[Rfam]
RNA sequence: AUUAUUUAAGGGCAAACCUGUCGAAAGGCAGGGACGCAAAGCCAAGGGCCUAAAGAAAAAUGAAUUCAAUGGCAGCCGGUUGCAAUG
Numbered sequence: 001a002u003u004a005u006u007u008a009a010g011g012g013c014a015a016a017c018c019u020g021u022c023g024a025a026a027g028g029c030a031g032g033g034a035c036g037c038a039a040a041g042c043c044a045a046g047g048g049c050c051u052a053a054a055g056a057a058a059a060a061u062g063a064a065u066u067c068a069a070u071g072g073c074a075g076c077c078g079g080u081u082g083c084a085a086u087g
Base pairs, nucleotide, nucleotide: 012037013036017032018031019030020029021028022027040081041080042079043078046077047076048073049072050071055067056066057065
This 87-nucleotide RNA sequence from Lutispora thermophila belongs to the Rfam family "c-di-GMP-I riboswitch aptamer". A search with the family's covariance model found it, with a score of 77 bits. The source organism's lineage runs through Bacteria, Bacillati, Lutisporales, Lutisporaceae and Lutispora thermophila.